[Rfam]
RNA sequence: ACUAAGGAAUGUUGUGACGCCUGUAUAAGUUCAUAAUUGGAUGAACGUUUCUACCAGCUACCGGAAUAGUUGACUACAAGCCUCUAUUUCUUAUAC
Number, nucleotide and partner (000 for none) at each position: 001a000002c000003u000004a000005a000006g000007g000008a000009a000010u000011g000012u000013u000014g000015u000016g000017a000018c000019g081020c080021c000022u078023g077024u076025a075026u000027a000028a000029g046030u045031u044032c043033a042034u041035a000036a000037u000038u000039g000040g000041a034042u033043g032044a031045a030046c029047g000048u000049u000050u000051c000052u000053a000054c000055c072056a071057g070058c069059u068060a067061c000062c000063g000064g000065a000066a000067u060068a059069g058070u057071u056072g055073a000074c000075u025076a024077c023078a022079a000080g020081c019082c000083u000084c000085u000086a000087u000088u000089u000090c000091u000092u000093a000094u000095a000096c000